[Rfam]
A member of the RNA family "Small nucleolar RNA Z266" from Ananas comosus, 91 nucleotides long. It scores 79 bits against the family's covariance model. The base pairs follow the family's consensus structure, which was predicted with PFOLD.

RNA sequence: UUUUGGCAGGAGGGAUGAAUCAAUUAGAUGUGCGAAGUAUAGCUUAUGAGCUAAACCUUUGAGGCAUAUUAAAAUUUCUGACCUGCCAAUU
Numbered sequence: 001u002u003u004u005g006g007c008a009g010g011a012g013g014g015a016u017g018a019a020u021c022a023a024u025u026a027g028a029u030g031u032g033c034g035a036a037g038u039a040u041a042g043c044u045u046a047u048g049a050g051c052u053a054a055a056c057c058u059u060u061g062a063g064g065c066a067u068a069u070u071a072a073a074a075u076u077u078c079u080g081a082c083c084u085g086c087c088a089a090u091u
Stems, first nucleotide, its partner, number of pairs: 003089008